[Rfam]
RNA sequence: AGGAGGAACAACCCCAGUGGCGGGGCCAGCUCUGGAGCCCUGGAGUCAGCUCUCGCAGUAACUCCGGAGCUGUCUGCAGGGCCUGGAGUCUCCAGGGCGGG
Numbered sequence: 001a002g003g004a005g006g007a008a009c010a011a012c013c014c015c016a017g018u019g020g021c022g023g024g025g026c027c028a029g030c031u032c033u034g035g036a037g038c039c040c041u042g043g044a045g046u047c048a049g050c051u052c053u054c055g056c057a058g059u060a061a062c063u064c065c066g067g068a069g070c071u072g073u074c075u076g077c078a079g080g081g082c083c084u085g086g087a088g089u090c091u092c093c094a095g096g097g098c099g100g101g
Stems, first nucleotide, its partner, number of pairs: 002093005009085002012081003019074003028071009040058003